[Rfam]
A member of the RNA family "SAH (S-adenosyl-L-homocysteine) riboswitch aptamer" from Limnohabitans radicicola, 99 nucleotides long.
The family's consensus secondary structure is taken from published work.
Nucleotides: 099
Stems, first nucleotide, its partner, number of pairs: 003057006021045002024042002
Number, partner (000 for none) and nucleotide at each position: 001000c002000c003057u004056c005055c006054c007053a008052a009000g010000g011000a012000g013000c014000g015000u016000u017000g018000c019000a020000g021045c022044c023000c024042g025041c026000c027000a028000c029000c030000g031000u032000c033000c034000a035000g036000g037000u038000g039000c040000c041025g042024c043000a044022g045021g046000u047000c048000a049000g050000g051000c052008u053007u054006g055005g056004g057003g058000c059000c060000u061000u062000c063000a064000a065000u066000u067000c068000c069000u070000g071000a072000u073000u074000g075000u076000u077000u078000u079000g080000c081000a082000c083000a084000a085000c086000g087000a088000c089000g090000c091000u092000c093000a094000c095000c096000u097000g098000u099000a
Lineage of the source: Bacteria > Pseudomonadati > Pseudomonadota > Betaproteobacteria > Limnohabitans. The family has 52 seed sequences and 1,354 matches in Rfam 15.1.